Overview: This 52-nucleotide RNA from Endobacter medicaginis belongs to the Rfam family "Xanthine riboswitch aptamer (NMT1 RNA)". On this family, see Xu et al., Nucleic Acids Res 2021: "Insights into xanthine riboswitch structure and metal ion-mediated ligand recognition". The base pairs follow the family's consensus structure, which is taken from published work. NCBI's taxonomy places the organism under Bacteria, Pseudomonadota, Acetobacterales, Acetobacteraceae, Endobacter.

RNA sequence: GCAGCGAGUAGAAGCGGUCAGGUGCAUGACGCACCCGGGCAUUGCUCCCAAC
Numbered sequence: 001g002c003a004g005c006g007a008g009u010a011g012a013a014g015c016g017g018u019c020a021g022g023u024g025c026a027u028g029a030c031g032c033a034c035c036c037g038g039g040c041a042u043u044g045c046u047c048c049c050a051a052c
Stems, first nucleotide, its partner, number of pairs: 006047005015037001018039002021035005